Shown here is a 596-nucleotide part of an RNA from Selenidium serpulae, a member of the family "Eukaryotic small subunit ribosomal RNA".
RNA sequence: UGACGGAAGGGCACCACCAGGAGUGGAGCUUGCGGCUUAAUUUGACUCAACACGGGAAAUCUCACCAGCCCCACACAUAAGGAGGAUUGACAGUUUGAUAGUUCUUUCUUGAUUCUAUGGAUGGUGGUGCAUGGCCGUUCUUAGUUGGUGGAGUGAUCUGUCUGGCUAAUUCCGUUAACGAACGAGAUCUUAACCUACUAACUAGAAAGUUCAACAUUUUCUUCUUAGAGGGACACUUAAUCGUUUAGAUUAGGGAAGUUUGAGGUAAUAACAGGUCUGUGAUGCCCCUAGACGUUCUGGGCUGCACGCGCGCUACAAUAGUACGCACAGCGAGUAUUACCAAGCUCGAAAGGGCAAGGUAAACUAAGAAAAGGUACUGUAAUUGUUAUAGAUCCUUGUAAUUAUUGAUCUUCAACGAGGAAUUCCUAGUAAGUAUGUGUCAUCAUCACGCACUGAUUACGUCCCUGCCCUUUGUACACACCGCCCGUCGCUCCUACCGAUUGGAUGAGGCGAUGAAACUCUCGGACGAGGCUUUAUUAAGAUUUUGAAAGAGAUUUGAAUCGGUUCAUUUAGAGGAAGGAGAAGUCGUAACAAGG
Number, nucleotide and partner (000 for none) at each position: 001u478002g477003a475004c474005g473006g000007a472008a471009g470010g469011g468012c467013a466014c000015c000016a462017c461018c000019a000020g426021g425022a424023g423024u422025g316026g000027a314028g313029c312030u000031u310032g309033c308034g307035g305036c304037u000038u000039a000040a000041u056042u055043u054044g053045a000046c000047u000048c000049a000050a000051c000052a000053c044054g043055g042056g041057a000058a000059a000060u000061c000062u000063c000064a000065c300066c299067a298068g297069c000070c000071c294072c000073a000074c000075a000076c119077a118078u117079a116080a000081g000082g000083a000084g000085g000086a000087u000088u000089g108090a107091c000092a105093g104094u000095u000096u000097g000098a000099u000100a000101g000102u000103u000104c093105u092106u000107u090108c089109u000110u000111g000112a000113u000114u000115c000116u079117a078118u077119g076120g000121a000122u000123g288124g287125u000126g286127g285128u284129g283130c000131a000132u282133g280134g276135c275136c274137g272138u271139u270140c000141u000142u000143a000144g183145u182146u181147g000148g179149u178150g159151g158152a157153g000154u000155g000156a000157u152158c151159u150160g000161u000162c000163u174164g173165g172166c000167u000168a000169a000170u000171u000172c165173c164174g163175u000176u000177a000178a149179c148180g000181a146182a145183c144184g000185a000186g000187a000188u000189c264190u263191u262192a261193a000194c231195c230196u229197a000198c228199u227200a226201a225202c000203u000204a222205g221206a220207a219208a000209g000210u000211u000212c000213a000214a000215c000216a000217u000218u000219u207220u206221c205222u204223u000224c000225u201226u200227a199228g198229a196230g195231g194232g000233a000234c255235a000236c254237u253238u252239a251240a250241u249242c248243g000244u000245u000246u000247a000248g242249a241250u240251u239252a238253g237254g236255g234256a000257a000258g000259u000260u000261u192262g191263a190264g189265g000266u000267a000268a000269u000270a139271a138272c137273a000274g136275g135276u134277c000278u000279g000280u133281g000282a132283u129284g128285c127286c126287c124288c123289u000290a000291g000292a000293c000294g071295u000296u000297c068298u067299g066300g065301g000302c000303u000304g036305c035306a000307c034308g033309c032310g031311c000312g029313c028314u027315a000316c025317a000318a000319u000320a378321g377322u376323a375324c374325g000326c000327a000328c000329a000330g000331c000332g000333a365334g364335u000336a000337u000338u000339a000340c359341c358342a000343a000344g355345c354346u353347c352348g000349a000350a000351a000352g347353g346354g345355c344356a000357a000358g341359g340360u000361a000362a000363a000364c334365u333366a000367a000368g000369a000370a000371a000372a000373g000374g324375u323376a322377c321378u320379g000380u000381a000382a000383u000384u000385g416386u000387u000388a000389u000390a411391g410392a409393u408394c407395c000396u000397u000398g000399u000400a000401a000402u000403u000404a000405u000406u000407g394408a393409u392410c391411u390412u000413c000414a000415a000416c385417g000418a000419g000420g000421a000422a024423u023424u022425c021426c020427u000428a000429g000430u000431a000432a454433g453434u452435a000436u450437g449438u448439g447440u000441c000442a000443u000444c000445a000446u000447c439448a438449c437450g436451c000452a434453c433454u432455g000456a000457u000458u000459a000460c000461g017462u016463c000464c000465c000466u013467g012468c011469c010470c009471u008472u007473u005474g004475u003476a000477c002478a001479c000480a000481c595482c000483g592484c000485c000486c588487g587488u000489c585490g000491c582492u581493c580494c579495u578496a000497c576498c575499g000500a000501u572502u000503g571504g570505a569506u568507g567508a566509g565510g000511c563512g562513a561514u560515g000516a000517a557518a556519c000520u554521c553522u552523c551524g000525g000526a000527c547528g546529a545530g544531g543532c000533u541534u540535u000536a000537u000538u000539a000540a534541g533542a000543u531544u530545u529546u528547g527548a000549a000550a000551g523552a522553g521554a520555u000556u518557u517558g000559a000560a514561u513562c512563g511564g000565u509566u508567c507568a506569u505570u504571u503572a501573g000574a000575g498576g497577a000578a495579g494580g493581a492582g491583a000584a000585g489586u000587c487588g486589u000590a000591a000592c483593a000594a000595g481596g000
The base pairs follow the family's consensus structure, which is taken from published work. The family is grouped with related families in Rfam's "SSU clan".